Rfam assigns this 50-nucleotide sequence from Shimia abyssi to the family "SAM/SAH riboswitch aptamer".
Nucleotides: 050
Base pairs, nucleotide, nucleotide: 004032006029007028008027009026010025013022014021015049016048017047019046020045
Number, partner (000 for none) and nucleotide at each position: 001000u002000c003000a004032c005000c006029g007028u008027c009026a010025c011000a012000a013022c014021g015049g016048c017047u018000u019046c020045c021014u022013g023000g024000c025010g026009u027008g028007a029006c030000g031000c032004g033000u034000u035000c036000a037000g038000a039000a040000a041000c042000a043000a044000u045020g046019g047017a048016g049015c050000a
A search with the family's covariance model found it, with a score of 53 bits. Pairs were carried over by alignment from the consensus structure, which is taken from published work. On this family, see Weickhmann et al., Nucleic Acids Res 2019: "The structure of the SAM/SAH-binding riboswitch". The source organism's lineage runs through Bacteria, Alphaproteobacteria, Rhodobacterales, Roseobacteraceae and Shimia.